[Rfam]
Rfam assigns this 305-nucleotide RNA from Vitis vinifera to the family "Plant signal recognition particle RNA". A search with the family's covariance model found it, with a score of 174 bits. The base pairs follow the family's consensus structure, which is taken from published work. The family's RNA type in Rfam is non-coding RNA gene. The source organism's lineage runs through Eukaryota, Spermatophyta, Vitales, Vitaceae and Vitis.
RNA sequence: GUCGAUUCAGUCACAGGAACCUAUAACCGGAGUAGGGGCAUUAAGGUGGGCGGAUAUUGGCUCGAUUGAGCGGGUAGGGCCUAAUAGGGUUAAAUGUUGGCUUGCCCGUUCCAAGUUAGGAGAUGAGUCUUGACAUCCAGGCUAAGACCUGGGUGACGUGGCUCCUAAAGUGGAGGAAAUUGCGUGAAGCUGGUUUCAUAGAGCAGCGUCCACUUCCUGCUCCCGUCGGUGGAAGGAUAAUUGGUCGGUGCUCCGCAGGGUCCAACAACGCCUUUUCAACUGCUCACAAUUUGACAUCCACCUUU
Numbered sequence: 001g002u003c004g005a006u007u008c009a010g011u012c013a014c015a016g017g018a019a020c021c022u023a024u025a026a027c028c029g030g031a032g033u034a035g036g037g038g039c040a041u042u043a044a045g046g047u048g049g050g051c052g053g054a055u056a057u058u059g060g061c062u063c064g065a066u067u068g069a070g071c072g073g074g075u076a077g078g079g080c081c082u083a084a085u086a087g088g089g090u091u092a093a094a095u096g097u098u099g100g101c102u103u104g105c106c107c108g109u110u111c112c113a114a115g116u117u118a119g120g121a122g123a124u125g126a127g128u129c130u131u132g133a134c135a136u137c138c139a140g141g142c143u144a145a146g147a148c149c150u151g152g153g154u155g156a157c158g159u160g161g162c163u164c165c166u167a168a169a170g171u172g173g174a175g176g177a178a179a180u181u182g183c184g185u186g187a188a189g190c191u192g193g194u195u196u197c198a199u200a201g202a203g204c205a206g207c208g209u210c211c212a213c214u215u216c217c218u219g220c221u222c223c224c225g226u227c228g229g230u231g232g233a234a235g236g237a238u239a240a241u242u243g244g245u246c247g248g249u250g251c252u253c254c255g256c257a258g259g260g261u262c263c264a265a266c267a268a269c270g271c272c273u274u275u276u277c278a279a280c281u282g283c284u285c286a287c288a289a290u291u292u293g294a295c296a297u298c299c300a301c302c303u304u305u
Stems, first nucleotide, its partner, number of pairs: 001039003004021001006019003027036002043304008052295001056291001057289003060285001063282002067278004072273004077263006085255001087253003091250002097248006104241001106236002109234005115227001117225001119223004125164005131158002134155008165170001172217005182209004190201003
Dot-bracket structure: ((((.(((........))).).....((......)))))...((((((((.(...(((((..((..((((.((((.((((((..(.(((.((....((((((.(.((.(((((.(.(.((((..(((((.((.((((((((......)))))))).)).)))))(....).(((((.....((((....(((......)))....))))...)))))..)))).).)..)))))))....).))))))))))).)..))))))......)))).))))..))..).))).)...).)))))))).